[Rfam]
RNA sequence: UAGUGAUGUGAUGUUUAAACAUCUUUCGGGACUAACUUGUUGUGUAGAUACAUUUCUUGAACUUAUCACUA
Numbered sequence: 001u002a003g004u005g006a007u008g009u010g011a012u013g014u015u016u017a018a019a020c021a022u023c024u025u026u027c028g029g030g031a032c033u034a035a036c037u038u039g040u041u042g043u044g045u046a047g048a049u050a051c052a053u054u055u056c057u058u059g060a061a062c063u064u065a066u067c068a069c070u071a
Stems, first nucleotide, its partner, number of pairs: 001071006
RNA: Small nucleolar RNA SNORD2
Organism: Scleropages formosus